A member of the RNA family "Small nucleolar RNA Z266" from Anisodus acutangulus, 96 nucleotides long.

[Rfam]
RNA sequence: UUGUGGCAAGAAUGAUGAAAACCAAUUAGAUGUAUGAGAGGUGAAUUCCUCUAUGAUCUAAUCGUCGAGGCUUAUUGAUAUUCUGACUUGCCUUUA
Numbered sequence: 001u002u003g004u005g006g007c008a009a010g011a012a013u014g015a016u017g018a019a020a021a022c023c024a025a026u027u028a029g030a031u032g033u034a035u036g037a038g039a040g041g042u043g044a045a046u047u048c049c050u051c052u053a054u055g056a057u058c059u060a061a062u063c064g065u066c067g068a069g070g071c072u073u074a075u076u077g078a079u080a081u082u083c084u085g086a087c088u089u090g091c092c093u094u095u096a
Base pairs, nucleotide, nucleotide: 001096003094005092006091007090008089009088010087
Pairs were carried over by alignment from the consensus structure, which was predicted with PFOLD. The literature on the family includes a 2003 paper in Nucleic Acids Res by Chen et al., "The high diversity of snoRNAs in plants: identification and comparative study of 120 snoRNA genes from Oryza sativa". Lineage of the source: Eukaryota > Spermatophyta > Gunneridae > Pentapetalae > Anisodus.